[Rfam]
RNA sequence: CUGACGGCCGCGUUCGGGUCAAUUGCGGACUGCAACACCCGAUCUCCCUCUACACGCCUCCGGAGAUGGAGGCAGAAGAGGGAGAGCGCGUCGCUAUCAG
Numbered sequence: 001c002u003g004a005c006g007g008c009c010g011c012g013u014u015c016g017g018g019u020c021a022a023u024u025g026c027g028g029a030c031u032g033c034a035a036c037a038c039c040c041g042a043u044c045u046c047c048c049u050c051u052a053c054a055c056g057c058c059u060c061c062g063g064a065g066a067u068g069g070a071g072g073c074a075g076a077a078g079a080g081g082g083a084g085a086g087c088g089c090g091u092c093g094c095u096a097u098c099a100g
Base pairs, nucleotide, nucleotide: 001100002099003098004097009090010089011088012087013086015041016040017039018038023035024034025033026032027031043085044084045083046082047081048080049079050078051077053075
Rfam assigns this 100-nucleotide RNA from Halogeometricum limi to the family "L4-Archaeoglobi ribosomal protein leades". On this family, see Eckert and Weinberg, BMC Microbiol 2020: "Discovery of 20 novel ribosomal leader candidates in bacteria and archaea".